[Rfam]
RNA sequence: UGGAUGGUGUGUUCCCAGGUGGCGUCGCCGGUGGUGGUGAGGGUGUGGUCGCCGUAGUGGUCGCCGUCGGCGAGGGUGGCCAGGAUGGUGUUGUCGCCGUAGGGGCCGGUGCCGAUCUUGUUGACUUUGCCGUGGGCGAUGAGGAUGAGGCGGUCGGCGGGUUGGCCGGUUUGGGUGAUGGCUUCGCCGGUUUGGUGGUGGUUUUGGGUGAAGCGUUGGGCGAGGGCGUGGAGGGUGUCGUCGUCGUCGAAGUGGCGGAGGAGGGGGAGUUCGCGGAGUUCUUGGGGGAUGACGUGGAUGUCGGUGCCUUGGCUGGUGAAGCUGAGGCGGCCGUCGCCCAGGGCGUAGGACAGGCGGCGGUUGACGCGGUAGGUGCCGCCGCUGGUGUGGAUCCAGGGGAGCAUGCGCAGCAGCCAGCGCGAGGAGAUGUUCUGCAUCUGGGGCUGCGAUUUGGUCGUCGUGGCCAGGUUGCGGGCGGCCGCGGUGGCCAGUGCCUGCUGGGCCUGG
Number, nucleotide and partner (000 for none) at each position: 001u000002g000003g000004a000005u000006g393007g392008u391009g000010u389011g388012u387013u000014c385015c384016c000017a000018g331019g000020u000021g328022g000023c000024g000025u325026c324027g323028c000029c321030g000031g000032u318033g000034g000035u000036g000037g000038u316039g000040a314041g313042g000043g000044u000045g309046u000047g000048g308049u000050c306051g305052c304053c303054g302055u000056a000057g236058u235059g000060g000061u232062c231063g000064c000065c228066g227067u226068c114069g113070g112071c111072g000073a000074g000075g000076g000077u000078g106079g000080c105081c104082a000083g000084g000085a100086u099087g098088g097089u096090g000091u000092u000093g000094u000095c000096g089097c088098c087099g086100u085101a000102g000103g000104g081105g080106c078107c000108g000109g000110u000111g071112c070113c069114g068115a000116u000117c000118u000119u000120g000121u224122u223123g000124a000125c220126u219127u000128u000129g216130c215131c000132g000133u212134g000135g000136g000137c206138g205139a204140u000141g202142a000143g000144g000145a199146u198147g000148a000149g000150g000151c195152g000153g000154u000155c000156g192157g191158c190159g000160g188161g187162u186163u181164g000165g000166c000167c000168g000169g176170u175171u000172u000173g000174g000175g170176u169177g000178a000179u000180g000181g163182c000183u000184u000185c000186g162187c161188c160189g000190g158191u157192u156193u000194g000195g151196u000197g000198g146199u145200g000201g000202u141203u000204u139205u138206g137207g000208g000209u000210g000211a000212a133213g000214c000215g130216u129217u000218g000219g126220g125221c000222g000223a122224g121225g000226g067227c066228g065229u000230g000231g062232a061233g000234g000235g058236u057237g299238u298239c297240g000241u000242c000243g293244u292245c291246g290247u289248c288249g000250a000251a000252g000253u285254g000255g283256c000257g281258g000259a280260g279261g000262a000263g274264g000265g272266g000267g000268a000269g000270u000271u000272c265273g000274c263275g000276g000277a000278g000279u260280u259281c257282u000283u255284g000285g253286g000287g000288g248289a247290u246291g245292a244293c243294g000295u000296g000297g239298a238299u237300g000301u000302c054303g053304g052305u051306g050307c000308c048309u045310u000311g000312g000313c041314u040315g000316g038317u000318g032319a000320a000321g029322c000323u027324g026325a025326g000327g000328c021329g000330g000331c018332c345333g344334u343335c342336g000337c000338c000339c000340a000341g000342g335343g334344c333345g332346u000347a000348g000349g000350a000351c000352a000353g000354g382355c381356g380357g379358c378359g377360g376361u000362u000363g000364a374365c373366g000367c000368g000369g000370u000371a000372g000373g365374u364375g000376c360377c359378g358379c357380c356381g355382c354383u000384g015385g014386u000387g012388u011389g010390g000391a008392u007393c006394c434395a433396g432397g431398g430399g000400a428401g000402c426403a000404u424405g000406c421407g420408c419409a000410g418411c000412a000413g000414c000415c000416a000417g000418c410419g408420c407421g406422a000423g000424g404425a000426g402427a000428u400429g000430u398431u397432c396433u395434g394435c000436a000437u000438c000439u000440g479441g000442g476443g000444c474445u473446g472447c471448g470449a000450u468451u467452u466453g465454g464455u463456c000457g000458u000459c000460g000461u000462g000463g455464c454465c453466a452467g451468g450469u000470u448471g447472c446473g445474g444475g000476c442477g000478g000479c440480c000481g000482c000483g504484g503485u502486g000487g000488c501489c500490a499491g498492u000493g000494c000495c000496u000497g000498c491499u490500g489501g488502g485503c484504c483505u000506g000507g000
Saccharopolyspora sRNA 350: a 507-nucleotide RNA sequence from Sphaerisporangium krabiense. Its family is annotated with regulation of secondary metabolite biosynthetic process in the Gene Ontology. Taxonomically the source falls in Sphaerisporangium (Bacteria, Bacillati, Actinomycetota, Streptosporangiaceae). The family's consensus secondary structure was predicted with RNAfold. For this family Rfam cites "Prediction and characterization of small non-coding RNAs related to secondary metabolites in Saccharopolyspora erythraea" (Liu et al., PLoS One, 2013).